[Rfam]
Description:
A member of the RNA family "SAM-III riboswitch aptamer (SMK box)" from Lacticaseibacillus saniviri, 81 nucleotides long. The literature on the family includes a 2008 paper in Biochem Cell Biol by Wang and Breaker, "Riboswitches that sense S-adenosylmethionine and S-adenosylhomocysteine". Rfam links the family to the GO terms regulation of translational initiation and methionine adenosyltransferase activity. Pairs were carried over by alignment from the consensus structure, which is taken from published work. The source organism's lineage runs through Bacteria, Bacilli, Lactobacillales, Lacticaseibacillus and Lacticaseibacillus saniviri. The match comes from Rfam's covariance-model search (65 bits).
RNA sequence: AUAAGUUGCAAAGAAUUCCCGAUAGGGUCCGCGCAUGCGGAGAUGCCUUGUAACCGAGAAUGAGGGGGAAACAUAAGAAUG
Numbered sequence: 001a002u003a004a005g006u007u008g009c010a011a012a013g014a015a016u017u018c019c020c021g022a023u024a025g026g027g028u029c030c031g032c033g034c035a036u037g038c039g040g041a042g043a044u045g046c047c048u049u050g051u052a053a054c055c056g057a058g059a060a061u062g063a064g065g066g067g068g069a070a071a072c073a074u075a076a077g078a079a080u081g
Stems, first nucleotide, its partner, number of pairs: 016070005024048003028041005054065002